About this RNA
A member of the RNA family "Early nodulin 40" from Gossypium australe, 253 nucleotides long. Gene Ontology term of the family: nodulation. For this family Rfam cites "Identification of conserved secondary structures and expansion segments in enod40 RNAs reveals new enod40 homologues in plants" (Gultyaev and Roussis, Nucleic Acids Res, 2007). The source organism's lineage runs through Eukaryota, Streptophytina, Euphyllophyta, rosids and Gossypium.
RNA sequence: AUGGUAUUAUUUUGGCAAAUGGGGUCUUCAUAAAGCACUGGGGAGGGGGGAGUUUGGGUGGGAUUCCUCCAUUCUCACCCUCAGCCCACAAUUAAAACUGUUUGGCACUGCUUAUUACCCAAUAAGCUUUGCAUGGAAGAGGAUCCAUCCUACAGAGCACCUACCUAUCUGCGGAGGCUUUUUUGGCUAAUGCAGUGGCAAAUCGGCAAGUCACGAAAAGGGCAAUCAACUCAUAGUAAUUAGUACGAGUCUG
Numbered sequence: 001a002u003g004g005u006a007u008u009a010u011u012u013u014g015g016c017a018a019a020u021g022g023g024g025u026c027u028u029c030a031u032a033a034a035g036c037a038c039u040g041g042g043g044a045g046g047g048g049g050g051a052g053u054u055u056g057g058g059u060g061g062g063a064u065u066c067c068u069c070c071a072u073u074c075u076c077a078c079c080c081u082c083a084g085c086c087c088a089c090a091a092u093u094a095a096a097a098c099u100g101u102u103u104g105g106c107a108c109u110g111c112u113u114a115u116u117a118c119c120c121a122a123u124a125a126g127c128u129u130u131g132c133a134u135g136g137a138a139g140a141g142g143a144u145c146c147a148u149c150c151u152a153c154a155g156a157g158c159a160c161c162u163a164c165c166u167a168u169c170u171g172c173g174g175a176g177g178c179u180u181u182u183u184u185g186g187c188u189a190a191u192g193c194a195g196u197g198g199c200a201a202a203u204c205g206g207c208a209a210g211u212c213a214c215g216a217a218a219a220g221g222g223c224a225a226u227c228a229a230c231u232c233a234u235a236g237u238a239a240u241u242a243g244u245a246c247g248a249g250u251c252u253g
Stems, first nucleotide, its partner, number of pairs: 049086002100203005122191002229250004
Overview: The family's consensus secondary structure is taken from published work. The family's RNA type in Rfam is non-coding RNA gene.